[Rfam]
RNA sequence: GGUUAACUGCGAGGAGGUGACCAUGAGACUGACGCAACAGUUCAAUGUUGUCAUGAUCUGUGCCGCGUUCGCCUUCAUCGGGAGCAUGCUCUUCAUCUGAAGGGACAUUCACCUGAAGGGACCAGGGCCCGAAAGCGCCUUCAUUACGUAGACCCAGCAAGAAUAGGAAAAGGGGAUCGUCUCGUCGGCGAUCCCCUUU
Numbered sequence: 001g002g003u004u005a006a007c008u009g010c011g012a013g014g015a016g017g018u019g020a021c022c023a024u025g026a027g028a029c030u031g032a033c034g035c036a037a038c039a040g041u042u043c044a045a046u047g048u049u050g051u052c053a054u055g056a057u058c059u060g061u062g063c064c065g066c067g068u069u070c071g072c073c074u075u076c077a078u079c080g081g082g083a084g085c086a087u088g089c090u091c092u093u094c095a096u097c098u099g100a101a102g103g104g105a106c107a108u109u110c111a112c113c114u115g116a117a118g119g120g121a122c123c124a125g126g127g128c129c130c131g132a133a134a135g136c137g138c139c140u141u142c143a144u145u146a147c148g149u150a151g152a153c154c155c156a157g158c159a160a161g162a163a164u165a166g167g168a169a170a171a172g173g174g175g176a177u178c179g180u181c182u183c184g185u186c187g188g189c190g191a192u193c194c195c196c197u198u199u
Stems, first nucleotide, its partner, number of pairs: 016049004025041001169199013
Dot-bracket structure: ...............((((.....(...............)....)))).......................................................................................................................(((((((((((((.....)))))))))))))
Shown here is a 199-nucleotide RNA from Georhizobium profundi, a member of the family "Rhizobiales sRNA Atu_C9".
The base pairs follow the family's consensus structure, which was predicted with WAR.
Taxonomically the source falls in Georhizobium (Bacteria, Pseudomonadota, Hyphomicrobiales, Rhizobiaceae).
Rfam classes the family as a small RNA.